Background:
Shown here is a 115-nucleotide RNA sequence from Citricoccus muralis, a member of the family "mraW RNA". Rfam classes the family as a cis-regulatory element. A search with the family's covariance model found it, with a score of 51 bits.
[Rfam]
RNA sequence: CGCGGAUUCUUGAAUGAGACCUCCAGCCGCCCUCGGCCGGACCUGACCCGACUUCCCCCGGGCCAGGCACGGAACCGGUGAGCGGAUGGGGAUCUGGUCCAAGGGUCCGCCUGUC
Numbered sequence: 001c002g003c004g005g006a007u008u009c010u011u012g013a014a015u016g017a018g019a020c021c022u023c024c025a026g027c028c029g030c031c032c033u034c035g036g037c038c039g040g041a042c043c044u045g046a047c048c049c050g051a052c053u054u055c056c057c058c059c060g061g062g063c064c065a066g067g068c069a070c071g072g073a074a075c076c077g078g079u080g081a082g083c084g085g086a087u088g089g090g091g092a093u094c095u096g097g098u099c100c101a102a103g104g105g106u107c108c109g110c111c112u113g114u115c
Stems, first nucleotide, its partner, number of pairs: 010102003014098002018094002021091005027085004032080001034078001037072003042067004047062003